[Rfam]
Nucleotides: 308
Base pairs, nucleotide, nucleotide: 001039002038003037004022005021006020007019008018009016010015027036028035029034044307045306046305047304048303049302050301051300052299054298057295058294059293060292061291062289065286067284069283070282071281072280073279074278076277077276078275079274081267082266083265084264085263086262087261092257093256102252103251104250105249106248107247108246110241111240113239114238115237116236117235119232120231121230122229124228126226127225128224129169130168131167132166133165134164136163137162138161139160140159141158142157145154146153147152170175177222178221179220180219181218186215188213189212190211195206196205197204
Number, partner (000 for none) and nucleotide at each position: 001039g002038c003037c004022g005021a006020g007019c008018a009016g010015c011000a012000a013000g014000c015010g016009c017000c018008u019007g020006c021005u022004u023000g024000u025000g026000a027036c028035c029034c030000g031000a032000g033000c034029g035028g036027g037003g038002g039001c040000a041000a042000a043000c044307a045306a046305g047304g048303u049302g050301g051300u052299g053000u054298g055000g056000a057295u058294g059293c060292c061291a062289a063000u064000u065286g066000c067284g068000u069283c070282g071281c072280g073279u074278g075000g076277g077276g078275c079274c080000u081267g082266g083265g084264c085263c086262u087261g088000u089000u090000g091000c092257u093256g094000c095000a096000c097000u098000c099000u100000g101000c102252c103251g104250g105249c106248c107247c108246g109000c110241c111240c112000g113239u114238c115237c116236c117235a118000a119232g120231u121230u122229g123000c124228g125000u126226a127225g128224u129169g130168g131167g132166c133165c134164g135000u136163g137162g138161g139160c140159g141158c142157u143000u144000u145154g146153g147152c148000g149000a150000a151000g152147g153146c154145c155000u156000c157142g158141g159140c160139g161138u162137c163136c164134c165133g166132g167131u168130u169129c170175c171000u172000a173000g174000a175170g176000u177222g178221g179220c180219g181218g182000g183000c184000a185000u186215u187000g188213c189212g190211u191000u192000a193000g194000g195206c196205u197204g198000g199000c200000c201000u202000c203000a204197c205196a206195g207000a208000g209000c210000a211190g212189c213188g214000a215186a216000u217000a218181c219180c220179g221178c222177c223000c224128g225127c226126u227000u228124c229122c230121a231120a232119c233000g234000g235117u236116g237115g238114g239113a240111g241110g242000a243000u244000a245000a246108c247107g248106g249105g250104c251103c252102g253000c254000u255000g256093c257092g258000c259000u260000c261087u262086a263085g264084g265083c266082u267081c268000g269000c270000u271000u272000a273000a274079g275078g276077c277076c278074c279073a280072u281071g282070c283069g284067u285000c286065c287000u288000c289062u290000c291061u292060g293059g294058c295057a296000g297000a298054c299052c300051a301050c302049c303048a304047u305046u306045u307044u308000u